[Rfam]
RNA sequence: GGCCUCCCUCUGUGGGGCAAUUGAUCGCAGGGCCCCCAGAUCAAUCACUCCGCAGAGGGAGGCC
Numbered sequence: 001g002g003c004c005u006c007c008c009u010c011u012g013u014g015g016g017g018c019a020a021u022u023g024a025u026c027g028c029a030g031g032g033c034c035c036c037c038a039g040a041u042c043a044a045u046c047a048c049u050c051c052g053c054a055g056a057g058g059g060a061g062g063c064c
Stems, first nucleotide, its partner, number of pairs: 001064017020045007030037002
About this RNA:
The family of this 64-nucleotide sequence from Myotis lucifugus is "mir-9242 microRNA precursor family". Gene Ontology terms of the family: miRNA-mediated post-transcriptional gene silencing and RISC complex.